[Rfam]
RNA sequence: UGAGUCGGCCGGGCGGCCGCGGCGUCCACCGCGAGGUGUGGCGUCGAGGAAAGUCCGGACUCCGUAGAGCGACGGUGGUGGCCAACAGCCACCCACGGCGACGUGCGGGACAGUGCCACAGAAAACAAACCGCCAGCGGCCUUCGGCCGACCGGCAGCGAGCUUGUCUCGCCGACGGAGAAGUCGAAGGUGCGGGUAAGGGUGAAACGGUGAGGUAAGAGCUCACCAGCGUUCCGGGUGACCGGAGCGGCUAGGUAAACCCCACCGGGAGCAAGACCAAGAGGACCUUCGGGUCUGCGCUGACGGGCUGCUCGUCCAAUGUCAGCGGGUAGGUCGCACGAGGCGUCCAGCAAUGGGCGUCCCAGAUGGAUGGUCGCCCGGGCUUCGGCCCGACAGGAUCCGGCUUACAGGCCGGCUCAUUCG
Numbered sequence: 001u002g003a004g005u006c007g008g009c010c011g012g013g014c015g016g017c018c019g020c021g022g023c024g025u026c027c028a029c030c031g032c033g034a035g036g037u038g039u040g041g042c043g044u045c046g047a048g049g050a051a052a053g054u055c056c057g058g059a060c061u062c063c064g065u066a067g068a069g070c071g072a073c074g075g076u077g078g079u080g081g082c083c084a085a086c087a088g089c090c091a092c093c094c095a096c097g098g099c100g101a102c103g104u105g106c107g108g109g110a111c112a113g114u115g116c117c118a119c120a121g122a123a124a125a126c127a128a129a130c131c132g133c134c135a136g137c138g139g140c141c142u143u144c145g146g147c148c149g150a151c152c153g154g155c156a157g158c159g160a161g162c163u164u165g166u167c168u169c170g171c172c173g174a175c176g177g178a179g180a181a182g183u184c185g186a187a188g189g190u191g192c193g194g195g196u197a198a199g200g201g202u203g204a205a206a207c208g209g210u211g212a213g214g215u216a217a218g219a220g221c222u223c224a225c226c227a228g229c230g231u232u233c234c235g236g237g238u239g240a241c242c243g244g245a246g247c248g249g250c251u252a253g254g255u256a257a258a259c260c261c262c263a264c265c266g267g268g269a270g271c272a273a274g275a276c277c278a279a280g281a282g283g284a285c286c287u288u289c290g291g292g293u294c295u296g297c298g299c300u301g302a303c304g305g306g307c308u309g310c311u312c313g314u315c316c317a318a319u320g321u322c323a324g325c326g327g328g329u330a331g332g333u334c335g336c337a338c339g340a341g342g343c344g345u346c347c348a349g350c351a352a353u354g355g356g357c358g359u360c361c362c363a364g365a366u367g368g369a370u371g372g373u374c375g376c377c378c379g380g381g382c383u384u385c386g387g388c389c390c391g392a393c394a395g396g397a398u399c400c401g402g403c404u405u406a407c408a409g410g411c412c413g414g415c416u417c418a419u420u421c422g
Stems, first nucleotide, its partner, number of pairs: 001418010011407001012377007020046007051405003055402005060270004069311001073266005078092005093107001094105004108261002113259002115255003130200002132196003136192003140188001208226006228250001229248008274334004284321002304316004341360008
Dot-bracket structure: ((((((((((((((((((.(((((((.............)))))))....[[[.[[[[[((((.....[...((((((((((.....)))))(((((....)))).)((...(((((............(((((.(((.(...............................................).))).)))..)).......((((((.......)))))).(((((((((....)))))))).)..)))..)))))))))))))...((((......((..................((((...].))))...)).........))))......((((((((....))))))))..........)))))))....................]]]]]]]].).))))))))))....
RNA: Bacterial RNase P class A
Organism: Aeromicrobium sp. A1-2